[Rfam]
RNA sequence: GCCCGGACGCCGCCGAGUCGCCGCCGGUCACGAGCCGGAGGCGAGCCGGGGACCCACCGCAGUACUGGGGUGAAUCGCGCCGCGGGCAGCCGUCCGCGGCGGGUAGGGCACUUCUGAGCCCGAAUCCGUCAGCUAACUCGGUAGGCGGCAUCGGAAGAAACG
Numbered sequence: 001g002c003c004c005g006g007a008c009g010c011c012g013c014c015g016a017g018u019c020g021c022c023g024c025c026g027g028u029c030a031c032g033a034g035c036c037g038g039a040g041g042c043g044a045g046c047c048g049g050g051g052a053c054c055c056a057c058c059g060c061a062g063u064a065c066u067g068g069g070g071u072g073a074a075u076c077g078c079g080c081c082g083c084g085g086g087c088a089g090c091c092g093u094c095c096g097c098g099g100c101g102g103g104u105a106g107g108g109c110a111c112u113u114c115u116g117a118g119c120c121c122g123a124a125u126c127c128g129u130c131a132g133c134u135a136a137c138u139c140g141g142u143a144g145g146c147g148g149c150a151u152c153g154g155a156a157g158a159a160a161c162g
Stems, first nucleotide, its partner, number of pairs: 011147004018044005045142006055067002068127003076103001078101010106121004
RNA: c-di-AMP riboswitch aptamer (ydaO/yuaA leader)
Organism: Blastococcus sp. TF02-8